[Rfam]
RNA: tRNA
Organism: Leadbettera azotonutricia
RNA sequence: CGGCGGGUAGGCCAGUGGUUAAGCCACGAGUUUUGGGAACUCGAUGUCGGGGGUUCAAAUCCCCCCCCGCCGA
Numbered sequence: 001c002g003g004c005g006g007g008u009a010g011g012c013c014a015g016u017g018g019u020u021a022a023g024c025c026a027c028g029a030g031u032u033u034u035g036g037g038a039a040c041u042c043g044a045u046g047u048c049g050g051g052g053g054u055u056c057a058a059a060u061c062c063c064c065c066c067c068c069g070c071c072g073a
Stems, first nucleotide, its partner, number of pairs: 001072007010025003027043005049065005